[Rfam]
Nucleotides: 223
Stems, first nucleotide, its partner, number of pairs: 015058005060126004065121002068118002071115004144217013157175006
Number, partner (000 for none) and nucleotide at each position: 001000a002000c003000a004000c005000g006000a007000g008000a009000a010000g011000g012000g013000a014000g015058g016057u017056g018055g019054u020000u021000c022000g023000g024000c025000a026000g027000a028000u029000g030000u031000a032000u033000g034000a035000a036000a037000u038000c039000c040000g041000g042000a043000c044000g045000c046000g047000u048000g049000a050000g051000g052000u053000g054019a055018c056017u057016g058015c059000g060126g061125g062124c063123u064000a065121g066120c067000a068118g069117u070000c071115c072114g073113u074112c075000g076000u077000c078000g079000c080000g081000c082000u083000c084000a085000g086000c087000g088000c089000a090000u091000u092000c093000g094000c095000c096000g097000g098000a099000c100000u101000g102000g103000c104000g105000c106000a107000c108000c109000a110000g111000a112074g113073g114072u115071g116000c117069g118068c119000g120066g121065c122000c123063g124062g125061c126060c127000a128000a129000u130000c131000c132000c133000a134000a135000g136000c137000a138000g139000u140000c141000a142000c143000c144217c145216g146215a147214c148213c149212c150211g151210c152209g153208g154207g155206u156205c157175g158174c159173c160172g161171g162170u163000a164000c165000g166000u167000c168000c169000g170162a171161c172160c173159g174158g175157c176000c177000c178000c179000c180000u181000u182000c183000c184000g185000c186000c187000u188000c189000a190000g191000g192000g193000c194000g195000u196000c197000a198000g199000g200000g201000g202000a203000a204000a205156g206155a207154c208153c209152c210151g211150c212149g213148g214147g215146u216145u217144g218000u219000c220000c221000g222000c223000g

Shown here is a 223-nucleotide RNA from Streptomyces albiflaviniger, a member of the family "Actinobacteria sRNA Ms_IGR-5". The literature on the family includes a 2013 paper in RNA by Li et al., "Identification of small RNAs in Mycobacterium smegmatis using heterologous Hfq". Lineage of the source: Bacteria > Actinomycetota > Actinomycetes > Streptomycetaceae > Streptomyces.